[Rfam]
RNA sequence: CAAAUUCCAGAUGAACCACCGUCCCAGUCGCAGUAGCGAGGCAAGGUAAGGAAUGUGUAAUGCAAACGCUCAGUAAUGCUGGACCUGGAUGAGUUGAGAAACAAACCAUUUUCUCUAAACCUUACU
Numbered sequence: 001c002a003a004a005u006u007c008c009a010g011a012u013g014a015a016c017c018a019c020c021g022u023c024c025c026a027g028u029c030g031c032a033g034u035a036g037c038g039a040g041g042c043a044a045g046g047u048a049a050g051g052a053a054u055g056u057g058u059a060a061u062g063c064a065a066a067c068g069c070u071c072a073g074u075a076a077u078g079c080u081g082g083a084c085c086u087g088g089a090u091g092a093g094u095u096g097a098g099a100a101a102c103a104a105a106c107c108a109u110u111u112u113c114u115c116u117a118a119a120c121c122u123u124a125c126u
Stems, first nucleotide, its partner, number of pairs: 006089005021084002024082004028039004045126007055067002058064001068094005
RNA: EGFOA RNA
Organism: Halalkalibacter akibai